Rfam assigns this 196-nucleotide sequence from Pantoea vagans to the family "Lysine riboswitch aptamer".
[Rfam]
Nucleotides: 196
Stems, first nucleotide, its partner, number of pairs: 006191006016080007024072001030065006037058001084114006091107005115141004120137006143181005
Number, partner (000 for none) and nucleotide at each position: 001000c002000a003000a004000g005000c006191c007190a008189g009188a010187a011186g012000a013000g014000g015000c016080g017079c018078g019077u020076c021075g022074c023000c024072c025000a026000g027000g028000c029000a030065g031064u032063g033062u034061g035060u036000u037058c038000a039000a040000g041000g042000a043000a044000c045000c046000g047000u048000a049000u050000c051000c052000g053000u054000u055000u056000g057000a058037g059000u060035a061034c062033a063032c064031a065030u066000c067000a068000g069000g070000g071000g072024g073000u074022g075021u076020g077019a078018c079017g080016c081000c082000g083000a084114g085113a086112u087111g088110g089109c090000a091107c092106a093105a094104c095103a096000c097000g098000c099000g100000g101000u102000g103095u104094g105093u106092u107091g108000a109089g110088c111087u112086g113085u114084c115141g116140g117139c118138u119000g120137c121136a122135g123134g124133g125132g126000c127000u128000g129000a130000a131000u132125c133124c134123u135122c136121u137120g138118g139117g140116u141115u142000g143181u144180c145179a146178c147177c148000a149000g150000a151000a152000g153000c154000g155000u156000c157000c158000g159000c160000a161000g162000u163000c164000g165000g166000a167000c168000g169000u170000u171000u172000c173000g174000c175000a176000a177147g178146g179145u180144g181143a182000a183000g184000u185000g186011c187010u188009u189008u190007u191006g192000g193000u194000g195000a196000c